[Rfam]
RNA sequence: GUGGCAGUGAGGAAAAACCUUGCGGGUUGGAAACAAGGACACAACCCCGCGAGUUUUCGAA
Numbered sequence: 001g002u003g004g005c006a007g008u009g010a011g012g013a014a015a016a017a018c019c020u021u022g023c024g025g026g027u028u029g030g031a032a033a034c035a036a037g038g039a040c041a042c043a044a045c046c047c048c049g050c051g052a053g054u055u056u057u058c059g060a061a
Base pairs, nucleotide, nucleotide: 014057015056016055017054018053022050023049024048025047026046027044028043029042
A member of the RNA family "Cyano-1 RNA" from Synechococcus sp. CC9605, 61 nucleotides long.
The family's RNA type in Rfam is small RNA.
The organism belongs to Synechococcus, within Bacteria.